Rfam assigns this 74-nucleotide RNA sequence from Phaeodactylibacter xiamenensis to the family "tRNA".
[Rfam]
RNA sequence: GGUCCCGUAGCUCAGUUGGAUAGAGCGGCGGACUUCUAAUCCGCAGGUCGUGGGUUCGAACCCUACCGGGAUCA
Number, nucleotide and partner (000 for none) at each position: 001g073002g072003u071004c070005c069006c068007g067008u000009a000010g026011c025012u024013c023014a000015g000016u000017u000018g000019g000020a000021u000022a000023g013024a012025g011026c010027g000028g044029c043030g042031g041032a040033c000034u000035u000036c000037u000038a000039a000040u032041c031042c030043g029044c028045a000046g000047g000048u000049c000050g066051u065052g064053g063054g062055u000056u000057c000058g000059a000060a000061c000062c054063c053064u052065a051066c050067c007068g006069g005070g004071a003072u002073c001074a000
Annotation:
Rfam links the family to the GO term triplet codon-amino acid adaptor activity. Lineage of the source: Bacteria > Pseudomonadati > Bacteroidota > Saprospiria > Phaeodactylibacter. A search with the family's covariance model found it, with a score of 69 bits. The family's consensus secondary structure is taken from published work.